Glycine riboswitch aptamer: a 77-nucleotide RNA sequence from Youngiibacter fragilis. Its Rfam clan is "Glycine riboswitch clan". This family represents the bacterial glycine riboswitch.
RNA sequence: AUGAAGACAACGGGAGAGAGAUCUUUAUGAUCCGCCGAAGGAGUAGCACUUUCAGGCAAAAGGACCGUUGUUGGACG
Numbered sequence: 001a002u003g004a005a006g007a008c009a010a011c012g013g014g015a016g017a018g019a020g021a022u023c024u025u026u027a028u029g030a031u032c033c034g035c036c037g038a039a040g041g042a043g044u045a046g047c048a049c050u051u052u053c054a055g056g057c058a059a060a061a062g063g064a065c066c067g068u069u070g071u072u073g074g075a076c077g
Base pairs, nucleotide, nucleotide: 006072007071008070009069010068011067012066013065020032021031022030023029034057035056036055037053038052041051042050043049